[Rfam]
A member of the RNA family "RT-17 RNA" from Prevotella sp. S7-1-8, 93 nucleotides long.
The family's RNA type in Rfam is small RNA.
Taxonomically the source falls in Prevotella (Bacteria, Pseudomonadati, Bacteroidales, Prevotellaceae).
A search with the family's covariance model found it, with a score of 52 bits.

RNA sequence: AGCCUUGCCACUGGGCAAAAAAUAUCAAGUCAAAAAGGGUAUUGGUAGGACGGGCGACCGCCUCGAAAGUUCCCGACUAUGCAAAGCAGAAAC
Numbered sequence: 001a002g003c004c005u006u007g008c009c010a011c012u013g014g015g016c017a018a019a020a021a022a023u024a025u026c027a028a029g030u031c032a033a034a035a036a037g038g039g040u041a042u043u044g045g046u047a048g049g050a051c052g053g054g055c056g057a058c059c060g061c062c063u064c065g066a067a068a069g070u071u072c073c074c075g076a077c078u079a080u081g082c083a084a085a086g087c088a089g090a091a092a093c
Stems, first nucleotide, its partner, number of pairs: 006017004041070002048064001051060003